S15-Methanomicrobia ribosomal protein leader: a 76-nucleotide RNA.
The base pairs follow the family's consensus structure, which is taken from published work.
On this family, see Eckert and Weinberg, BMC Microbiol 2020: "Discovery of 20 novel ribosomal leader candidates in bacteria and archaea".

RNA sequence: AGCACGAAAUCGUGCUGGCAUAUGUAAGUCCGACGUGCCUUUUGGCACGGCCUUGCUCGUAAUGGCUUGGGAUUAC
Numbered sequence: 001a002g003c004a005c006g007a008a009a010u011c012g013u014g015c016u017g018g019c020a021u022a023u024g025u026a027a028g029u030c031c032g033a034c035g036u037g038c039c040u041u042u043u044g045g046c047a048c049g050g051c052c053u054u055g056c057u058c059g060u061a062a063u064g065g066c067u068u069g070g071g072a073u074u075a076c
Stems, first nucleotide, its partner, number of pairs: 001016006024076004030071002035048005049067004